Rfam assigns this 85-nucleotide RNA from Chrysochloris asiatica to the family "Small nucleolar RNA SNORD11". Rfam classes the family as a C/D-box small nucleolar RNA. The literature on the family includes a 2001 paper in EMBO J by Huttenhofer et al., "RNomics: an experimental approach that identifies 201 candidates for novel, small, non-messenger RNAs in mouse". Rfam links the family to the GO terms RNA processing and nucleolus. Pairs were carried over by alignment from the consensus structure, which was predicted with WAR. Rfam 15.1 lists 565 matches to the family in 520 species. Clan: SNORD11 clan.

[Rfam]
RNA sequence: GUGUUCAAUGAUGAUUUUUUUCUUAUUUGCCUGACUUCCUUUUGGAUUAUGAAGGCAUUUUUAGUCACUACCUCGUCUGAGACAC
Numbered sequence: 001g002u003g004u005u006c007a008a009u010g011a012u013g014a015u016u017u018u019u020u021u022c023u024u025a026u027u028u029g030c031c032u033g034a035c036u037u038c039c040u041u042u043u044g045g046a047u048u049a050u051g052a053a054g055g056c057a058u059u060u061u062u063a064g065u066c067a068c069u070a071c072c073u074c075g076u077c078u079g080a081g082a083c084a085c
Base pairs, nucleotide, nucleotide: 001085002084003083004082